[Rfam]
RNA sequence: AGAACAGAUAGAGGUGCGGUAAUGAAUAGUACCUGACAGCAAAGUGUUUUUAUCUUAAACGGUGUUUCCCCAAGCGCCGCGGCUGCUGUCAGCGAAAGGCUAAACCGCCGAAGCGUGCGUAAGGGGCGCAUGGCUGACUGCAGGUCUAAGAGAUAUGCAGUUGUCAUCAUUACUUUAUGGUGGAGUGCUAUCGGCAUU
Numbered sequence: 001a002g003a004a005c006a007g008a009u010a011g012a013g014g015u016g017c018g019g020u021a022a023u024g025a026a027u028a029g030u031a032c033c034u035g036a037c038a039g040c041a042a043a044g045u046g047u048u049u050u051u052a053u054c055u056u057a058a059a060c061g062g063u064g065u066u067u068c069c070c071c072a073a074g075c076g077c078c079g080c081g082g083c084u085g086c087u088g089u090c091a092g093c094g095a096a097a098g099g100c101u102a103a104a105c106c107g108c109c110g111a112a113g114c115g116u117g118c119g120u121a122a123g124g125g126g127c128g129c130a131u132g133g134c135u136g137a138c139u140g141c142a143g144g145u146c147u148a149a150g151a152g153a154u155a156u157g158c159a160g161u162u163g164u165c166a167u168c169a170u171u172a173c174u175u176u177a178u179g180g181u182g183g184a185g186u187g188c189u190a191u192c193g194g195c196a197u198u
Stems, first nucleotide, its partner, number of pairs: 007192005016108005024100001033092009112135003115131005120124001136162007144154003164183007
Shown here is a 198-nucleotide RNA sequence from Ruminococcus sp. CAG:579, a member of the family "Lysine riboswitch aptamer". Taxonomically the source falls in Ruminococcus (Bacteria, Bacillati, Bacillota, Eubacteriales).